[Rfam]
RNA sequence: CUCAAGGGAGUAGCUGGCAGAAACCUGUGAUAGUGUCGUCAUUCCGAAUUUUAUGCUGAAAAGUAUGCUUUCCGGCCCUAUCUUAAACAGCGAGACUUGUUAUGAUUAACAGGUCUCUUUUU
Numbered sequence: 001c002u003c004a005a006g007g008g009a010g011u012a013g014c015u016g017g018c019a020g021a022a023a024c025c026u027g028u029g030a031u032a033g034u035g036u037c038g039u040c041a042u043u044c045c046g047a048a049u050u051u052u053a054u055g056c057u058g059a060a061a062a063g064u065a066u067g068c069u070u071u072c073c074g075g076c077c078c079u080a081u082c083u084u085a086a087a088c089a090g091c092g093a094g095a096c097u098u099g100u101u102a103u104g105a106u107u108a109a110c111a112g113g114u115c116u117c118u119u120u121u122u
Stems, first nucleotide, its partner, number of pairs: 005028001007026002011023001014020001029082005035076004041071001045067001092117011
The record is a 122-nucleotide sequence from Streptococcus pneumoniae, which matches "Streptococcus sRNA 10" in Rfam.
It scores 57 bits against the family's covariance model.
The literature on the family includes a 2013 paper in PLoS One by Tesorero et al., "Novel regulatory small RNAs in Streptococcus pyogenes".
The source organism's lineage runs through Bacteria, Bacillota, Lactobacillales, Streptococcus and Streptococcus pneumoniae.
The family's consensus secondary structure was predicted with RNAfold.